Shown here is a 95-nucleotide RNA sequence from Sapajus apella, a member of the family "Small nucleolar SNORD12/SNORD106".
The family's RNA type in Rfam is C/D-box small nucleolar RNA.
For this family Rfam cites "RNomics: an experimental approach that identifies 201 candidates for novel, small, non-messenger RNAs in mouse" (Huttenhofer et al., EMBO J, 2001).
The family has 8 seed sequences and 2,264 matches in Rfam 15.1.
The organism belongs to Sapajus, within Eukaryota.
RNA sequence: GCUGGUGUAAAUGAUGACUUUCCACUUUUUUUCCCCAUCAGAUCGACAAUGCUGACGUUUUAAAACAUUUGGCCAGUUAUUUCUGACACACCGGC
Numbered sequence: 001g002c003u004g005g006u007g008u009a010a011a012u013g014a015u016g017a018c019u020u021u022c023c024a025c026u027u028u029u030u031u032u033c034c035c036c037a038u039c040a041g042a043u044c045g046a047c048a049a050u051g052c053u054g055a056c057g058u059u060u061u062a063a064a065a066c067a068u069u070u071g072g073c074c075a076g077u078u079a080u081u082u083c084u085g086a087c088a089c090a091c092c093g094g095c
Base pairs, nucleotide, nucleotide: 001095002094003093004092005091006090007089008088
The family is grouped with related families in Rfam's "SNORD12 clan".